RNA sequence: UAGCGCACUGGAAGCUAUAAAUUCAGGGGCGGUAGCGUG
Numbered sequence: 001u002a003g004c005g006c007a008c009u010g011g012a013a014g015c016u017a018u019a020a021a022u023u024c025a026g027g028g029g030c031g032g033u034a035g036c037g038u039g
Base pairs, nucleotide, nucleotide: 008026009025010024011023012022
RNA: JUMPstart RNA
Organism: Shewanella sp. P1-14-1